[Rfam]
RNA sequence: GGAUCGAUGAUGACUCCCUACAAAAUGCAUUCCUUGGAAAUCUGAACAAAAUGAGUACAAUCCCUACCGUCGUCCUCAUCGGAACUGAGGUCC
Numbered sequence: 001g002g003a004u005c006g007a008u009g010a011u012g013a014c015u016c017c018c019u020a021c022a023a024a025a026u027g028c029a030u031u032c033c034u035u036g037g038a039a040a041u042c043u044g045a046a047c048a049a050a051a052u053g054a055g056u057a058c059a060a061u062c063c064c065u066a067c068c069g070u071c072g073u074c075c076u077c078a079u080c081g082g083a084a085c086u087g088a089g090g091u092c093c
Base pairs, nucleotide, nucleotide: 001093002092003091004090005089029056030055031054032053034049035048036047